[Rfam]
Nucleotides: 020
Stems, first nucleotide, its partner, number of pairs: 003016005
Number, partner (000 for none) and nucleotide at each position: 001000u002000g003016g004015g005014u006013g007012c008000g009000a010000g011000u012007g013006c014005g015004u016003c017000a018000g019000u020000g
Overview:
This 20-nucleotide RNA from Lentivirus humimdef1 belongs to the Rfam family "HIV-1 stem-loop 4 packaging signal". On this family, see Yu et al., Proc Natl Acad Sci U S A 2008: "MS3D structural elucidation of the HIV-1 packaging signal". The sequence is in the family's curated seed alignment. Rfam classes the family as a cis-regulatory element. Rfam 15.1 lists 49 matches to the family in 38 species.